[Rfam]
Nucleotides: 144
Base pairs, nucleotide, nucleotide: 001010002009023064024063025062026061027060028055029054030053031052032051033050036047038045039044079090080089081088082087093114094113095112096111100107101106119137120136121135122134123133
Number, partner (000 for none) and nucleotide at each position: 001010a002009a003000u004000u005000c006000c007000g008000u009002u010001u011000g012000c013000a014000g015000u016000a017000g018000u019000c020000u021000g022000a023064g024063a025062g026061u027060a028055c029054g030053u031052g032051c033050a034000u035000u036047g037000c038045g039044a040000g041000u042000a043000a044039u045038c046000u047036u048000u049000u050033u051032g052031u053030g054029c055028g056000a057000a058000g059000c060027u061026g062025c063024u064023c065000u066000g067000a068000c069000a070000a071000a072000g073000u074000a075000c076000c077000c078000u079090u080089u081088c082087c083000g084000a085000a086000a087082g088081g089080a090079a091000u092000a093114g094113a095112c096111c097000g098000a099000a100107g101106c102000g103000u104000g105000a106101g107100u108000g109000a110000a111096g112095g113094u114093c115000a116000a117000u118000g119137g120136c121135a122134g123133a124000u125000a126000a127000c128000a129000u130000c131000a132000u133123u134122c135121u136120g137119c138000c139000g140000a141000g142000g143000g144000g

Group II catalytic intron D1-D4-7: a 144-nucleotide RNA sequence from Crypturellus soui. About the family: Group II introns are found in rRNA, tRNA and mRNA of organelles in fungi, plants and protists, and also in mRNA in bacteria. The base pairs follow the family's consensus structure.